[Rfam]
RNA sequence: AAAUGACGAAGCAGGAGCGAAAUAUUGUCCGUUCCGGUUUUUAAUAGGGAAACAA
Number, nucleotide and partner (000 for none) at each position: 001a000002a000003a000004u000005g000006a000007c000008g042009a000010a039011g038012c037013a000014g035015g034016a033017g032018c031019g030020a000021a000022a000023u000024a000025u000026u000027g000028u000029c000030c019031g018032u017033u016034c015035c014036g000037g012038u011039u010040u000041u000042u008043a000044a000045u000046a000047g000048g000049g000050a000051a000052a000053c000054a000055a000
This 55-nucleotide RNA belongs to the Rfam family "Lacto-rpoB RNA". Pairs were carried over by alignment from the consensus structure, which is taken from published work.